Rfam assigns this 186-nucleotide sequence from Pristionchus pacificus to the family "Small nucleolar RNA U3". Rfam's curators write: Small nucleolar RNAs (snoRNAs) are involved in the processing and modification of rRNA in the nucleolus. There are two main classes of snoRNAs: the box C/D class, and the box H/ACA class. A reference for the family is Marz and Stadler (2010), "Comparative analysis of eukaryotic U3 snoRNA", RNA Biol. Gene Ontology terms of the family: RNA processing and nucleolus.

RNA sequence: GAAAUCAUACUUCACAGGAUCAUUUCUGUAGUAUGUAUUUCACAUGAUCCCUCACUCUGCUUUGAACAGGCAACCGCGGUGAUUGGGAAAAGAGCGAAGCGCGAGCGUGAAAAUGCCUUCGGGCUUGAGGACCGCGGACGCUGAAAGCUCACUUUUGGUGGCCUGCGCCUCGCUCAUCUGAGCGGU
Numbered sequence: 001g002a003a004a005u006c007a008u009a010c011u012u013c014a015c016a017g018g019a020u021c022a023u024u025u026c027u028g029u030a031g032u033a034u035g036u037a038u039u040u041c042a043c044a045u046g047a048u049c050c051c052u053c054a055c056u057c058u059g060c061u062u063u064g065a066a067c068a069g070g071c072a073a074c075c076g077c078g079g080u081g082a083u084u085g086g087g088a089a090a091a092g093a094g095c096g097a098a099g100c101g102c103g104a105g106c107g108u109g110a111a112a113a114u115g116c117c118u119u120c121g122g123g124c125u126u127g128a129g130g131a132c133c134g135c136g137g138a139c140g141c142u143g144a145a146a147g148c149u150c151a152c153u154u155u156u157g158g159u160g161g162c163c164u165g166c167g168c169c170u171c172g173c174u175c176a177u178c179u180g181a182g183c184g185g186u
Stems, first nucleotide, its partner, number of pairs: 001041005006035006015028005046062002051059001073186005092175006099168004105135003115124003136163001140159007